[Rfam]
RNA: sok antitoxin (CssrC)
RNA sequence: GGGUGCUUGAGACUGUUCGUCUUGGGCAUUGUGUGACAAGGCGGAUAGAUGAAAGCCCCAGACUGACUCUCAAUCAGAAUGGGGCUGCACAUACCGCCUAGACACCGGUAUGGUAGCCCCUUCACAGCAAGGAGGCAAGCAUGUAUAAAAAACAUG
Numbered sequence: 001g002g003g004u005g006c007u008u009g010a011g012a013c014u015g016u017u018c019g020u021c022u023u024g025g026g027c028a029u030u031g032u033g034u035g036a037c038a039a040g041g042c043g044g045a046u047a048g049a050u051g052a053a054a055g056c057c058c059c060a061g062a063c064u065g066a067c068u069c070u071c072a073a074u075c076a077g078a079a080u081g082g083g084g085c086u087g088c089a090c091a092u093a094c095c096g097c098c099u100a101g102a103c104a105c106c107g108g109u110a111u112g113g114u115a116g117c118c119c120c121u122u123c124a125c126a127g128c129a130a131g132g133a134g135g136c137a138a139g140c141a142u143g144u145a146u147a148a149a150a151a152a153c154a155u156g
Stems, first nucleotide, its partner, number of pairs: 001059003005056004011050001013048011026034002060080001063077001064072003081120005090112007128143002